[Rfam]
RNA sequence: UCAUAUUCCCGUUGGGGAAGGAUGAGAACCUUCGACCCGAAGUUCGAGUCGAACGUCAGUGAGACAACGCCAUUUAUGGCGGCCCGCAGGGCAAGGAGCGCAGCGACGCAGUCAUCCUUCCCCCACCACCA
Numbered sequence: 001u002c003a004u005a006u007u008c009c010c011g012u013u014g015g016g017g018a019a020g021g022a023u024g025a026g027a028a029c030c031u032u033c034g035a036c037c038c039g040a041a042g043u044u045c046g047a048g049u050c051g052a053a054c055g056u057c058a059g060u061g062a063g064a065c066a067a068c069g070c071c072a073u074u075u076a077u078g079g080c081g082g083c084c085c086g087c088a089g090g091g092c093a094a095g096g097a098g099c100g101c102a103g104c105g106a107c108g109c110a111g112u113c114a115u116c117c118u119u120c121c122c123c124c125a126c127c128a129c130c131a
Stems, first nucleotide, its partner, number of pairs: 015122007023114001034092001036091002043088001045086002050061002068081005
Dot-bracket structure: ..............(((((((.(..........(.((.....(.((...((........))......(((((....)))))...)).).))).....................).))))))).........

Rfam assigns this 131-nucleotide RNA from Erwinia sorbitola to the family "RtT RNA". A reference for the family is Bosl and Kersten (1991), "A novel RNA product of the tyrT operon of Escherichia coli", Nucleic Acids Res. Rfam links the family to the GO term cellular response to amino acid starvation.